[Rfam]
RNA sequence: GGCCGCGGCCGUGACUGGCGAACCGAGGUGGGAUCGACCACCGGGGAGCGGCCGAGCAGUCCCCCUGCAGAGCACCGUCCGCCUGGGUGCCUGGG
Numbered sequence: 001g002g003c004c005g006c007g008g009c010c011g012u013g014a015c016u017g018g019c020g021a022a023c024c025g026a027g028g029u030g031g032g033a034u035c036g037a038c039c040a041c042c043g044g045g046g047a048g049c050g051g052c053c054g055a056g057c058a059g060u061c062c063c064c065c066u067g068c069a070g071a072g073c074a075c076c077g078u079c080c081g082c083c084u085g086g087g088u089g090c091c092u093g094g095g
Stems, first nucleotide, its partner, number of pairs: 004056001006054007015045002017083004028041004072090005

A member of the RNA family "ZMP/ZTP riboswitch aptamer (pfl RNA motif)" from Cellulomonas soli, 95 nucleotides long. The base pairs follow the family's consensus structure, which is taken from published work.